[Rfam]
Nucleotides: 054
Base pairs, nucleotide, nucleotide: 013043015040016039020036021035022034023033024032025031
Number, partner (000 for none) and nucleotide at each position: 001000u002000g003000c004000a005000c006000u007000c008000a009000c010000g011000a012000c013043u014000a015040u016039a017000a018000g019000u020036u021035g022034c023033u024032c025031u026000g027000g028000a029000a030000a031025a032024g033023a034022g035021c036020a037000u038000c039016u040015g041000c042000u043013a044000a045000a046000u047000g048000a049000c050000u051000a052000a053000a054000a

UnaL2 LINE 3' element: a 54-nucleotide RNA sequence from Hucho hucho. Its family is annotated with transposition, RNA-mediated in the Gene Ontology. Rfam's curators write: The eel long interspersed element (LINE) UnaL2 and its partner short interspersed element (SINE) share a conserved 3' tail containing a stem-loop that is critical for their retrotransposition. Taxonomically the source falls in Hucho (Eukaryota, Gnathostomata, Clupeocephala, Salmoniformes).